[Rfam]
RNA sequence: CCAACGGCCCUCUUUAGGGCCACAAAUGAUAAAUCCAAACAGUCCG
Numbered sequence: 001c002c003a004a005c006g007g008c009c010c011u012c013u014u015u016a017g018g019g020c021c022a023c024a025a026a027u028g029a030u031a032a033a034u035c036c037a038a039a040c041a042g043u044c045c046g
Stems, first nucleotide, its partner, number of pairs: 006021006
The record is a 46-nucleotide RNA from Caenorhabditis elegans, which matches "Histone 3' UTR stem-loop" in Rfam. Its family is annotated with mRNA 3'-end processing by stem-loop binding and cleavage in the Gene Ontology.